[Rfam]
Rfam assigns this 56-nucleotide RNA sequence from Nitratireductor aestuarii to the family "terC RNA". The family's consensus secondary structure is taken from published work.
RNA sequence: AGAGCGGACCGGGCCCCUCUGGCGGGAGUUCAUCUCACGUCAUGUCGGCCGCAUCG
Numbered sequence: 001a002g003a004g005c006g007g008a009c010c011g012g013g014c015c016c017c018u019c020u021g022g023c024g025g026g027a028g029u030u031c032a033u034c035u036c037a038c039g040u041c042a043u044g045u046c047g048g049c050c051g052c053a054u055c056g
Stems, first nucleotide, its partner, number of pairs: 006050002009048004022040003026036003